[Rfam]
RNA sequence: CUUGCACACAAAAACUCGUUAAGCCCUCCACCAACAAUUGGACUGCUUAAGUCAGACGUGCAGACAGAAAAUGGAGCUUGUCGCCUUCCCAGACUGGUCCUGUGUCUGUGGAAGUGAAUCAAAGCUUUGACAUAU
Numbered sequence: 001c002u003u004g005c006a007c008a009c010a011a012a013a014a015c016u017c018g019u020u021a022a023g024c025c026c027u028c029c030a031c032c033a034a035c036a037a038u039u040g041g042a043c044u045g046c047u048u049a050a051g052u053c054a055g056a057c058g059u060g061c062a063g064a065c066a067g068a069a070a071a072u073g074g075a076g077c078u079u080g081u082c083g084c085c086u087u088c089c090c091a092g093a094c095u096g097g098u099c100c101u102g103u104g105u106c107u108g109u110g111g112a113a114g115u116g117a118a119u120c121a122a123a124g125c126u127u128u129g130a131c132a133u134a135u
Stems, first nucleotide, its partner, number of pairs: 002063006021048004027042004073128007085114005090108005
This 135-nucleotide RNA from Branchiostoma belcheri belongs to the Rfam family "Small nucleolar RNA SNORA68". The base pairs follow the family's consensus structure, which was predicted with PFOLD. A search with the family's covariance model found it, with a score of 61 bits. The organism belongs to Branchiostoma, within Eukaryota.